[Rfam]
RNA sequence: CGAUAUUCUCAGGGCAGGGUGAAAGUCCCUACCGGUGGUCACAGCCCACGAGCGGCCCUUGGUUUGACAAGGGUGACAGCAGACCCGGCGCAAUUCCGGGGCCGACGGUUACAGUCCGGAUGAAAGAGAAUGGAG
Numbered sequence: 001c002g003a004u005a006u007u008c009u010c011a012g013g014g015c016a017g018g019g020u021g022a023a024a025g026u027c028c029c030u031a032c033c034g035g036u037g038g039u040c041a042c043a044g045c046c047c048a049c050g051a052g053c054g055g056c057c058c059u060u061g062g063u064u065u066g067a068c069a070a071g072g073g074u075g076a077c078a079g080c081a082g083a084c085c086c087g088g089c090g091c092a093a094u095u096c097c098g099g100g101g102c103c104g105a106c107g108g109u110u111a112c113a114g115u116c117c118g119g120a121u122g123a124a125a126g127a128g129a130a131u132g133g134a135g
Base pairs, nucleotide, nucleotide: 004132005131006130007129008128009127010126017029018028019027031115032114033104034103035049036048037047038046044102045101052080053079084100085099086098087097088096106118107117108116

Rfam assigns this 135-nucleotide RNA sequence from Ruegeria sp. TM1040 to the family "FMN riboswitch aptamer (RFN element)". The source organism's lineage runs through Bacteria, Pseudomonadati, Pseudomonadota, Rhodobacterales and Ruegeria. The RFN element is a highly conserved domain that is found frequently in the 5'-untranslated regions of prokaryotic mRNAs that encode for flavin mononucleotide (FMN) biosynthesis and transport proteins. It scores 110 bits against the family's covariance model. Pairs were carried over by alignment from the consensus structure, which is taken from published work.